[Rfam]
RNA: tRNA
Organism: Panagrolaimus davidi
RNA sequence: GCAUCGGUAGUUCAGUGGUUAGAACGUCUGAAUCCCCAAUUUAGAUAACCCGGGAUCAAUACCCGGCCGGUGCA
Numbered sequence: 001g002c003a004u005c006g007g008u009a010g011u012u013c014a015g016u017g018g019u020u021a022g023a024a025c026g027u028c029u030g031a032a033u034c035c036c037c038a039a040u041u042u043a044g045a046u047a048a049c050c051c052g053g054g055a056u057c058a059a060u061a062c063c064c065g066g067c068c069g070g071u072g073c074a
Stems, first nucleotide, its partner, number of pairs: 001073007010025004027045007050066005